RNA sequence: UUAUAUGUGUAAAUGUCUCUUUCUCAUUCCUUUAGGAGCAAAAGUAUAUCUGUAAUAUGCCAGACUGAAAGUUGCCAGGCUGCCAGUCUAAUAGUGGAGGUUGAGUGCUAGUGUACUUCCCCUACAUAA
Numbered sequence: 001u002u003a004u005a006u007g008u009g010u011a012a013a014u015g016u017c018u019c020u021u022u023c024u025c026a027u028u029c030c031u032u033u034a035g036g037a038g039c040a041a042a043a044g045u046a047u048a049u050c051u052g053u054a055a056u057a058u059g060c061c062a063g064a065c066u067g068a069a070a071g072u073u074g075c076c077a078g079g080c081u082g083c084c085a086g087u088c089u090a091a092u093a094g095u096g097g098a099g100g101u102u103g104a105g106u107g108c109u110a111g112u113g114u115a116c117u118u119c120c121c122c123u124a125c126a127u128a129a
Stems, first nucleotide, its partner, number of pairs: 004059005016042001018040001020038004071119001079109001083105001084103006

Small nucleolar RNA U109: a 129-nucleotide RNA from Catagonus wagneri.
The match comes from Rfam's covariance-model search (61 bits).
NCBI's taxonomy places the organism under Eukaryota, Deuterostomia, Laurasiatheria, Suina, Catagonus.
The family has 26 seed sequences and 1,405 matches in Rfam 15.1.
Pairs were carried over by alignment from the consensus structure, which was predicted with WAR.
Its family is annotated with RNA processing and nucleolus in the Gene Ontology.